[Rfam]
RNA sequence: UCCGCGGUGGGGGGCUGAGACGCGCGAUCUCUCUUGCGGACGCCCAGACCGCGCCGAGCCACUGGCGAGACCGACCUGCUCCAGU
Numbered sequence: 001u002c003c004g005c006g007g008u009g010g011g012g013g014g015c016u017g018a019g020a021c022g023c024g025c026g027a028u029c030u031c032u033c034u035u036g037c038g039g040a041c042g043c044c045c046a047g048a049c050c051g052c053g054c055c056g057a058g059c060c061a062c063u064g065g066c067g068a069g070a071c072c073g074a075c076c077u078g079c080u081c082c083a084g085u
Stems, first nucleotide, its partner, number of pairs: 002084001004082001006080006013060003022054005028048002038072002041067004